RNA: Small nucleolar RNA SNORA40
Organism: Nannospalax galili
RNA sequence: UGUGUGUGUGUGUGUGUGUGUUCAACUGGUGGACAAAGGCAUGAAAGACAGGUGCAAAAAUAAAAAUAAAUCCUCUUUUGCAACCCAGAACUCAUUCACUGUUGAGUGUGAGCUUUGAUACUUACAAGGACUAGAACAGC
Numbered sequence: 001u002g003u004g005u006g007u008g009u010g011u012g013u014g015u016g017u018g019u020g021u022u023c024a025a026c027u028g029g030u031g032g033a034c035a036a037a038g039g040c041a042u043g044a045a046a047g048a049c050a051g052g053u054g055c056a057a058a059a060a061u062a063a064a065a066a067u068a069a070a071u072c073c074u075c076u077u078u079u080g081c082a083a084c085c086c087a088g089a090a091c092u093c094a095u096u097c098a099c100u101g102u103u104g105a106g107u108g109u110g111a112g113c114u115u116u117g118a119u120a121c122u123u124a125c126a127a128g129g130a131c132u133a134g135a136a137c138a139g140c
Base pairs, nucleotide, nucleotide: 001056002055003054004053005052007050008049009048011046014040015039017037019035020034021033026031071136073134074133076129077128078127079126080125086117087116088115089114091112092111093110094109095108